[Rfam]
RNA sequence: GUAGAUGCUCAUCCUAUUUAUUAUGACAGCCAAUGCUUCAUAAAGCCGGGGAUGAUGCAGAGUCGAUUAUCGGUGCCUAUUGUCCAAUAUAGAUGAGUAAGAUUAGCCAUCUUUUCAUCAGCCAGUGGACGUAACGUUGAGUGAGGCACCACCCGUCUGUAGACCUGAUUGUAUUUUUAUACACCUGCCUGUUGGUAGGUGUUUUUUU
Numbered sequence: 001g002u003a004g005a006u007g008c009u010c011a012u013c014c015u016a017u018u019u020a021u022u023a024u025g026a027c028a029g030c031c032a033a034u035g036c037u038u039c040a041u042a043a044a045g046c047c048g049g050g051g052a053u054g055a056u057g058c059a060g061a062g063u064c065g066a067u068u069a070u071c072g073g074u075g076c077c078u079a080u081u082g083u084c085c086a087a088u089a090u091a092g093a094u095g096a097g098u099a100a101g102a103u104u105a106g107c108c109a110u111c112u113u114u115u116c117a118u119c120a121g122c123c124a125g126u127g128g129a130c131g132u133a134a135c136g137u138u139g140a141g142u143g144a145g146g147c148a149c150c151a152c153c154c155g156u157c158u159g160u161a162g163a164c165c166u167g168a169u170u171g172u173a174u175u176u177u178u179a180u181a182c183a184c185c186u187g188c189c190u191g192u193u194g195g196u197a198g199g200u201g202u203u204u205u206u207u208u
Base pairs, nucleotide, nucleotide: 001063002062006059007058008057009055010054011053012052014051015050017049019042020041027035072150073149074148075147076146077145078144082130083129084128085127086126092119093118094117095116096115097114155164156163157162181202182201183200184199185198186197187196188195189194
Shown here is a 208-nucleotide RNA from Moellerella wisconsensis, a member of the family "GlmZ RNA activator of glmS mRNA". Clan: Glm clan. Rfam's curators write: This RNA was discovered in E. coli during a large scale screen. The sraJ gene was expressed in early logarithmic phase, but its level decreased with cell growth. Specific cleavage products of this RNA were found. The match comes from Rfam's covariance-model search (140 bits). Rfam classes the family as a small RNA. The source organism's lineage runs through Bacteria, Pseudomonadati, Gammaproteobacteria, Enterobacterales and Moellerella wisconsensis.